RNA sequence: UGAGAGAAUGAUGUUGAAGGAACUCGGCAAAAUGCUUCCGUAACUUCGGGAUAAGGAAGACCUGUUUUUAGGCAACUAGAGACAGGUGGCACAAGCCAGGGAGAAGCGACUGUUUAUCAAAAACACAGGGCUCUGCUAACACGUAAGUGGAUGUAUAGGGUCUGACGCCUGCCCGGUGCUGGAAGGUUAAUGCGGUUGGUGCAAGCUAACUUCUGAAGCCCCAGUAAACGGCGGCCGUAACUAUAACGGUCCUAAGGUAGCGAAAUUCCUUGUCGGGUAAGUUCCGACCUGCAUGAAUGGCGUAACGAUUUCUCCGCUGUCUCCAACAUCAACUCA
Numbered sequence: 001u002g003a004g005a006g007a008a009u010g011a012u013g014u015u016g017a018a019g020g021a022a023c024u025c026g027g028c029a030a031a032a033u034g035c036u037u038c039c040g041u042a043a044c045u046u047c048g049g050g051a052u053a054a055g056g057a058a059g060a061c062c063u064g065u066u067u068u069u070a071g072g073c074a075a076c077u078a079g080a081g082a083c084a085g086g087u088g089g090c091a092c093a094a095g096c097c098a099g100g101g102a103g104a105a106g107c108g109a110c111u112g113u114u115u116a117u118c119a120a121a122a123a124c125a126c127a128g129g130g131c132u133c134u135g136c137u138a139a140c141a142c143g144u145a146a147g148u149g150g151a152u153g154u155a156u157a158g159g160g161u162c163u164g165a166c167g168c169c170u171g172c173c174c175g176g177u178g179c180u181g182g183a184a185g186g187u188u189a190a191u192g193c194g195g196u197u198g199g200u201g202c203a204a205g206c207u208a209a210c211u212u213c214u215g216a217a218g219c220c221c222c223a224g225u226a227a228a229c230g231g232c233g234g235c236c237g238u239a240a241c242u243a244u245a246a247c248g249g250u251c252c253u254a255a256g257g258u259a260g261c262g263a264a265a266u267u268c269c270u271u272g273u274c275g276g277g278u279a280a281g282u283u284c285c286g287a288c289c290u291g292c293a294u295g296a297a298u299g300g301c302g303u304a305a306c307g308a309u310u311u312c313u314c315c316g317c318u319g320u321c322u323c324c325a326a327c328a329u330c331a332a333c334u335c336a
Stems, first nucleotide, its partner, number of pairs: 001336004009331008018322003035059005044049001060087012088092001100315007107307002111125003128163008136153001140149003166302004171232003176229002178225005185220003192213001194211007233251006252256001262289001272288006

The family of this 336-nucleotide part of an RNA from Pelagibacterales bacterium SAG-MED04 is "Bacterial large subunit ribosomal RNA". A search with the family's covariance model found it, with a score of 2702 bits. Lineage of the source: Bacteria > Pseudomonadati > Pseudomonadota > Alphaproteobacteria > Candidatus Pelagibacterales. Pairs were carried over by alignment from the consensus structure, which is taken from published work.